[Rfam]
RNA sequence: GCAUGAAUCCUAUUCACAACGGAUCGUCCGGCACGUUCCUGCCGGUGAAGGAGAAAUAA
Numbered sequence: 001g002c003a004u005g006a007a008u009c010c011u012a013u014u015c016a017c018a019a020c021g022g023a024u025c026g027u028c029c030g031g032c033a034c035g036u037u038c039c040u041g042c043c044g045g046u047g048a049a050g051g052a053g054a055a056a057u058a059a
Base pairs, nucleotide, nucleotide: 010051011050013049014048015047016046028045029044030043031042032041033040
Rfam assigns this 59-nucleotide RNA from Cryobacterium lyxosi to the family "msiK RNA". The match comes from Rfam's covariance-model search (63 bits). By type it is a cis-regulatory element.